[Rfam]
RNA sequence: CUGCCUUAUAGGGAUGAACUAGUCCCCUAUAUUUAUGUCCAUCUUUCAAUCUGUUGGCUAUUUUAUUUUUAGUUGUAGCUGGCAACACUUUGGUGGGAAAUAC
Dot-bracket structure: .....................................((((((.........((((((((...............))))))))........))))))......
A member of the RNA family "Small nucleolar RNA snoR99" from Dendrobium nobile, 103 nucleotides long.
The literature on the family includes a 2002 paper in Curr Biol by Marker et al., "Experimental RNomics: identification of 140 candidates for small non-messenger RNAs in the plant Arabidopsis thaliana".
Pairs were carried over by alignment from the consensus structure, which was predicted with WAR.